[Rfam]
Shown here is a 62-nucleotide RNA sequence from Piliocolobus tephrosceles, a member of the family "U7 small nuclear RNA". The base pairs follow the family's consensus structure, which was predicted with PFOLD. It scores 55 bits against the family's covariance model. For this family Rfam cites "3' end processing of mouse histone pre-mRNA: evidence for additional base-pairing between U7 snRNA and pre-mRNA" (Spycher et al., Nucleic Acids Res, 1994).

Nucleotides: 062
Stems, first nucleotide, its partner, number of pairs: 035058003039054006
Number, partner (000 for none) and nucleotide at each position: 001000c002000a003000g004000u005000g006000u007000u008000a009000c010000a011000g012000c013000u014000g015000u016000u017000u018000u019000a020000g021000a022000a023000u024000u025000u026000g027000u028000c029000u030000a031000g032000c033000a034000a035058g036057u037056u038000c039054u040053c041052u042051g043050g044049u045000c046000u047000u048000c049044a050043c051042u052041g053040g054039a055000a056037a057036a058035c059000c060000c061000a062000u